[Rfam]
RNA sequence: CGGUCAUUACCAAGGCUUUUAGAAUGCAGUGUCUCAUUGCUGUGGACGUGACCACAGAACUUGUUCCCACAAGGUUUUCUGCUGCUACGCUGCUUGUGUUCAGCCUGUUGGGAAUAUUU
Numbered sequence: 001c002g003g004u005c006a007u008u009a010c011c012a013a014g015g016c017u018u019u020u021a022g023a024a025u026g027c028a029g030u031g032u033c034u035c036a037u038u039g040c041u042g043u044g045g046a047c048g049u050g051a052c053c054a055c056a057g058a059a060c061u062u063g064u065u066c067c068c069a070c071a072a073g074g075u076u077u078u079c080u081g082c083u084g085c086u087a088c089g090c091u092g093c094u095u096g097u098g099u100u101c102a103g104c105c106u107g108u109u110g111g112g113a114a115u116a117u118u119u
Stems, first nucleotide, its partner, number of pairs: 003052005010045003026040004066112004073105004083098003

Small nucleolar RNA SNORA32: a 119-nucleotide RNA sequence from Phyllostomus discolor. Gene Ontology terms of the family: RNA processing and nucleolus. The organism belongs to Phyllostomus, within Eukaryota. About the family: ACA32 is a member of the H/ACA class of snoRNA that guide the sites of modification of uridines to pseudouridines. The match comes from Rfam's covariance-model search (99 bits). Rfam classes the family as an H/ACA-box small nucleolar RNA.